[Rfam]
The record is a 110-nucleotide RNA from Medicago truncatula, which matches "MIR5294 microRNA precursor family" in Rfam. Taxonomically the source falls in Medicago (Eukaryota, Magnoliopsida, eudicotyledons, Pentapetalae). The match comes from Rfam's covariance-model search (116 bits). Its family is annotated with miRNA-mediated post-transcriptional gene silencing and RISC complex in the Gene Ontology.

RNA sequence: GAGAGGUCCCUGCCCUUAGCCGUUUAGCUAUUUAAACGUCAUCCCAUCAGACGGUUAAACUACUCGAACAAUAUGGUGCUAAACGGAAUGAGGAUAAUCAUCCCUCUCAU
Dot-bracket structure: ((((((....((.(((((.(((((((((...............(((((.((............))))......))).)))))))))..))))).))......))))))..
Numbered sequence: 001g002a003g004a005g006g007u008c009c010c011u012g013c014c015c016u017u018a019g020c021c022g023u024u025u026a027g028c029u030a031u032u033u034a035a036a037c038g039u040c041a042u043c044c045c046a047u048c049a050g051a052c053g054g055u056u057a058a059a060c061u062a063c064u065c066g067a068a069c070a071a072u073a074u075g076g077u078g079c080u081a082a083a084c085g086g087a088a089u090g091a092g093g094a095u096a097a098u099c100a101u102c103c104c105u106c107u108c109a110u
Stems, first nucleotide, its partner, number of pairs: 001108006011096002014093005020086009044076003047067002050065002